[Rfam]
RNA sequence: ACCCUCACCUCGGGGUGCCCCAUGGGGCUGAGAUGCGCGACCCGCGAACCCGUUGAACCUGAACCGGUUAGAACCGGCGGAGGGAAGGCCCAUGGACAGAUU
Numbered sequence: 001a002c003c004c005u006c007a008c009c010u011c012g013g014g015g016u017g018c019c020c021c022a023u024g025g026g027g028c029u030g031a032g033a034u035g036c037g038c039g040a041c042c043c044g045c046g047a048a049c050c051c052g053u054u055g056a057a058c059c060u061g062a063a064c065c066g067g068u069u070a071g072a073a074c075c076g077g078c079g080g081a082g083g084g085a086a087g088g089c090c091c092a093u094g095g096a097c098a099g100a101u102u
Base pairs, nucleotide, nucleotide: 008088009087010086011052012051013050014049016046017028018027019026020025035045036044037043058083059082060081064077065076066075067074
This 102-nucleotide RNA from Rhodovulum sp. BSW8 belongs to the Rfam family "TPP riboswitch aptamer (THI element)". Rfam describes the family as follows. Vitamin B(1) in its active form thiamin pyrophosphate (TPP) is an essential coenzyme that is synthesised by coupling of pyrimidine and thiazole moieties in bacteria. A search with the family's covariance model found it, with a score of 75 bits. The base pairs follow the family's consensus structure, which is taken from published work. Rfam links the family to the GO term thiamine pyrophosphate binding. Taxonomically the source falls in Rhodovulum (Bacteria, Alphaproteobacteria, Rhodobacterales, Paracoccaceae).